RNA sequence: UGAACGAAAAGCUCGUGUAAAGGGAAAACAUACGGACAACGGAUUUAUUCCGAUGUCACUUUAACCCUUGGGAAGGUCUGAGAAAAACUAUAAAAGCCUCUAGCUGAGAUACUCAUGAGAAUGAGUGCGAAUAACCAGAAACGGUACCCUCCUUGGUUUCUAAAUAUGAAGUCUUAUGAUCGAUUGUUUAUCAAUGGAGUGUUGGAACGCGGUUCGCUUGUGGAAGUUCUAUGAAGUGCGAUACACGAGACAUCACAAUGUGAUGUAACUCAAUUCAGACUACUCUUUCGUUCG
Numbered sequence: 001u002g003a004a005c006g007a008a009a010a011g012c013u014c015g016u017g018u019a020a021a022g023g024g025a026a027a028a029c030a031u032a033c034g035g036a037c038a039a040c041g042g043a044u045u046u047a048u049u050c051c052g053a054u055g056u057c058a059c060u061u062u063a064a065c066c067c068u069u070g071g072g073a074a075g076g077u078c079u080g081a082g083a084a085a086a087a088c089u090a091u092a093a094a095a096g097c098c099u100c101u102a103g104c105u106g107a108g109a110u111a112c113u114c115a116u117g118a119g120a121a122u123g124a125g126u127g128c129g130a131a132u133a134a135c136c137a138g139a140a141a142c143g144g145u146a147c148c149c150u151c152c153u154u155g156g157u158u159u160c161u162a163a164a165u166a167u168g169a170a171g172u173c174u175u176a177u178g179a180u181c182g183a184u185u186g187u188u189u190a191u192c193a194a195u196g197g198a199g200u201g202u203u204g205g206a207a208c209g210c211g212g213u214u215c216g217c218u219u220g221u222g223g224a225a226g227u228u229c230u231a232u233g234a235a236g237u238g239c240g241a242u243a244c245a246c247g248a249g250a251c252a253u254c255a256c257a258a259u260g261u262g263a264u265g266u267a268a269c270u271c272a273a274u275u276c277a278g279a280c281u282a283c284u285c286u287u288u289c290g291u292u293c294g
Base pairs, nucleotide, nucleotide: 001294002293003292004291007288008287009286012249013248014247015246016245017244018243020069021068022067023066024065035057036056037055038054040052041051042050043049078278079277080276081275082274086221096110098108099107100106111126112125113124114123115122116121127217128216129215130214131213132212145201146200147199250266251265252264253263254262255261256260

The record is a 294-nucleotide RNA sequence from Funneliformis mosseae, which matches "Nuclear RNase P" in Rfam. About the family: Ribonuclease P (RNase P) is a ubiquitous endoribonuclease, found in archaea, bacteria and eukarya as well as chloroplasts and mitochondria. Its best characterised activity is the generation of mature 5'-ends of tRNAs by cleaving the 5'-leader elements of precursor-tRNAs. Cellular RNase Ps are ribonucleoproteins. RNA from bacterial RNase Ps retains its catalytic activity in the absence of the protein subunit, i.e. it is a ribozyme. Isolated eukaryotic and archaeal RNase P RNA has not been shown to retain its catalytic function, but is still essential for the catalytic activity of the holoenzyme. Although the archaeal and eukaryotic holoenzyme s have a much greater protein content than the bacterial ones, the RNA cores from all the three lineages are homologous -- helices corresponding to P1, P2, P3, P4, and P10/11 are common to all cellular RNase P RNAs. Yet, there is considerable sequence variation, particularly among the eukaryotic RNAs. The family's RNA type in Rfam is ribozyme.